[Rfam]
The record is a 61-nucleotide sequence from Streptomyces palmae, which matches "Actino-pnp RNA" in Rfam. NCBI's taxonomy places the organism under Bacteria, Actinomycetes, Kitasatosporales, Streptomycetaceae, Streptomyces.
RNA sequence: GCCGGUCCUCGGUAGUGGCUCCCGGAAUCAAUAGUUCCGGUGGCUUCGAUCGAAGACCGGC
Numbered sequence: 001g002c003c004g005g006u007c008c009u010c011g012g013u014a015g016u017g018g019c020u021c022c023c024g025g026a027a028u029c030a031a032u033a034g035u036u037c038c039g040g041u042g043g044c045u046u047c048g049a050u051c052g053a054a055g056a057c058c059g060g061c
Stems, first nucleotide, its partner, number of pairs: 001061007009053005017045004022040007
Dot-bracket structure: (((((((.(((((...((((.(((((((.....))))))).))))...))))).)))))))
Record summary
The family's consensus secondary structure is taken from published work.